[Rfam]
RNA: PrrF RNA
RNA sequence: UUGACAGCGUAAUGAGAAUUGUUAUGAUUACGCCAUCUGGUCGCGAGACCAGCCGAUCUUCUGGAAGGCCCUUGGUUCGGACUCUCAGAAAAUCUCCUCAUCAGGCUAAUCACGGUUAUUUGACCCGGCUCUUGCCGGGUCUUUUUUUG
Numbered sequence: 001u002u003g004a005c006a007g008c009g010u011a012a013u014g015a016g017a018a019u020u021g022u023u024a025u026g027a028u029u030a031c032g033c034c035a036u037c038u039g040g041u042c043g044c045g046a047g048a049c050c051a052g053c054c055g056a057u058c059u060u061c062u063g064g065a066a067g068g069c070c071c072u073u074g075g076u077u078c079g080g081a082c083u084c085u086c087a088g089a090a091a092a093u094c095u096c097c098u099c100a101u102c103a104g105g106c107u108a109a110u111c112a113c114g115g116u117u118a119u120u121u122g123a124c125c126c127g128g129c130u131c132u133u134g135c136c137g138g139g140u141c142u143u144u145u146u147u148u149g
Base pairs, nucleotide, nucleotide: 034055037052038051039050040049041048042047061088062087063086064085066083067082069079096105097104098103122141123140124139125138126137127136128135129134